About this RNA
Shown here is a 137-nucleotide sequence from Triticum aestivum, a member of the family "Small nucleolar RNA snoR2/U65". Clan: SNORA65 clan. The literature on the family includes a 1998 paper in J Cell Sci by Shaw et al., "Localization and processing from a polycistronic precursor of novel snoRNAs in maize". Rfam 15.1 lists 908 matches to the family in 230 species. The family's consensus secondary structure was predicted with WAR. It scores 94 bits against the family's covariance model. The organism belongs to Triticum, within Eukaryota.

[Rfam]
RNA sequence: GGCCCGAUGCCACGUCUCAGGUAGCCGCAAGCCUUGACCAGAGAUGCGACAUUGUGCCAACAAAGAUUUUCACAUUUGAUAGGAACCUGUGGCUGUGAUUCAGUCGGUACACAGAGCCGUUUUUGGUGAUUACACUU
Numbered sequence: 001g002g003c004c005c006g007a008u009g010c011c012a013c014g015u016c017u018c019a020g021g022u023a024g025c026c027g028c029a030a031g032c033c034u035u036g037a038c039c040a041g042a043g044a045u046g047c048g049a050c051a052u053u054g055u056g057c058c059a060a061c062a063a064a065g066a067u068u069u070u071c072a073c074a075u076u077u078g079a080u081a082g083g084a085a086c087c088u089g090u091g092g093c094u095g096u097g098a099u100u101c102a103g104u105c106g107g108u109a110c111a112c113a114g115a116g117c118c119g120u121u122u123u124u125g126g127u128g129a130u131u132a133c134a135c136u137u
Base pairs, nucleotide, nucleotide: 002057003056005054006053007052008051009050013046014045015044016043017042018041020039021038022037024032025031070129071128072127073126082118083117087114088113089112091110092108093107094106